[Rfam]
RNA sequence: GGGAAAUGAGGAAUGGGUUUAAUCUCGCUUAUAAAUGCGUGAAGAGCGUACCGCUCAAAGCCUGUUACGACAAUUUGGGCGCUCCAAUUGUUAUACCAAUCUGAUCCC
Numbered sequence: 001g002g003g004a005a006a007u008g009a010g011g012a013a014u015g016g017g018u019u020u021a022a023u024c025u026c027g028c029u030u031a032u033a034a035a036u037g038c039g040u041g042a043a044g045a046g047c048g049u050a051c052c053g054c055u056c057a058a059a060g061c062c063u064g065u066u067a068c069g070a071c072a073a074u075u076u077g078g079g080c081g082c083u084c085c086a087a088u089u090g091u092u093a094u095a096c097c098a099a100u101c102u103g104a105u106c107c108c
Base pairs, nucleotide, nucleotide: 001108002107003106004105014099016097017096018095024041026039027038028037044084045083046082047081048080049079062077064074065073

The record is a 108-nucleotide RNA from Capsella rubella, which matches "Small nucleolar RNA Z279/snoR105/snoR108" in Rfam. NCBI's taxonomy places the organism under Eukaryota, Streptophytina, Magnoliopsida, Brassicaceae, Capsella. Clan: snoU13 clan. The family's RNA type in Rfam is C/D-box small nucleolar RNA. Rfam describes the family as follows. This family includes the plant snoRNAs known as Z279, snoR105 and snoR108.